[Rfam]
RNA: U4 spliceosomal RNA
Organism: Bombus vosnesenskii
RNA sequence: AGCUUCGCGCAGCGGCGAUAUCGUAACCAACUACGUUCUACCGAGGUGCGAUUAUUUUUAGUCGAAAACUUUUGUCAAUAUCCCGCUUUGACGAUUUAGAACAUUAAGAACAUUAGAGUCAUAUAUGCAGGCUGACUGACCGA
Numbered sequence: 001a002g003c004u005u006c007g008c009g010c011a012g013c014g015g016c017g018a019u020a021u022c023g024u025a026a027c028c029a030a031c032u033a034c035g036u037u038c039u040a041c042c043g044a045g046g047u048g049c050g051a052u053u054a055u056u057u058u059u060a061g062u063c064g065a066a067a068a069c070u071u072u073u074g075u076c077a078a079u080a081u082c083c084c085g086c087u088u089u090g091a092c093g094a095u096u097u098a099g100a101a102c103a104u105u106a107a108g109a110a111c112a113u114u115a116g117a118g119u120c121a122u123a124u125a126u127g128c129a130g131g132c133u134g135a136c137u138g139a140c141c142g143a
Stems, first nucleotide, its partner, number of pairs: 020052005026047003035041002085119007093111001095109003